[Rfam]
RNA sequence: GGCCAAUGAUGCAUAGAUGUAUUGUCCGUACCAUCUGAGAGUCUUUUUUUCAAAGACUUCAUUGAUGAGUAAUCUAUCUUUACCUUUCUGAGGCUU
Numbered sequence: 001g002g003c004c005a006a007u008g009a010u011g012c013a014u015a016g017a018u019g020u021a022u023u024g025u026c027c028g029u030a031c032c033a034u035c036u037g038a039g040a041g042u043c044u045u046u047u048u049u050u051c052a053a054a055g056a057c058u059u060c061a062u063u064g065a066u067g068a069g070u071a072a073u074c075u076a077u078c079u080u081u082a083c084c085u086u087u088c089u090g091a092g093g094c095u096u
Base pairs, nucleotide, nucleotide: 001095002094003093004092